RNA sequence: UCUGGCCGUGAUGACGCUCUUGCCCUCACUGAGAACACUGUUCACUAAUGAGAGCUUUACAUGCAGAGCUGAGCCAGA
Number, nucleotide and partner (000 for none) at each position: 001u078002c077003u076004g075005g074006c073007c000008g000009u000010g000011a000012u000013g000014a000015c000016g000017c000018u000019c000020u000021u000022g000023c000024c000025c000026u000027c000028a000029c000030u000031g000032a000033g000034a000035a000036c000037a000038c000039u000040g000041u000042u000043c000044a000045c000046u000047a000048a000049u000050g000051a000052g000053a000054g000055c000056u000057u000058u000059a000060c000061a000062u000063g000064c000065a000066g000067a000068g000069c000070u000071g000072a000073g006074c005075c004076a003077g002078a001
This 78-nucleotide RNA sequence from Nothoprocta ornata belongs to the Rfam family "Small nucleolar RNA SNORD103/SNORD85". Pairs were carried over by alignment from the consensus structure. A search with the family's covariance model found it, with a score of 71 bits.